[Rfam]
RNA sequence: GCCCCCGUGGUUCGAAAAACGCCCACGUUAAAAAACUAGGGAAGA
Numbered sequence: 001g002c003c004c005c006c007g008u009g010g011u012u013c014g015a016a017a018a019a020c021g022c023c024c025a026c027g028u029u030a031a032a033a034a035a036c037u038a039g040g041g042a043a044g045a
Base pairs, nucleotide, nucleotide: 006027007026008025009024010023016037
Source information
This 45-nucleotide RNA sequence from Lautropia mirabilis belongs to the Rfam family "PreQ1 (pre queuosine) riboswitch aptamer". Gene Ontology term of the family: queuosine biosynthetic process. Pairs were carried over by alignment from the consensus structure. This family is a bacterial riboswitch that binds to the metabolite preQ1, an intermediate in the biosynthesis of the modified nucleoside queuosine from GTP. One example of this riboswitch is located in the leader of the Bacillus subtilis ykvJKLM (queCDEF) operon which encodes four genes necessary for queuosine production. PreQ1 binding to the riboswitch aptamer is thought to induce premature transcription termination within the leader to down-regulate expression of these genes. Lineage of the source: Bacteria > Pseudomonadota > Betaproteobacteria > Lautropia > Lautropia mirabilis.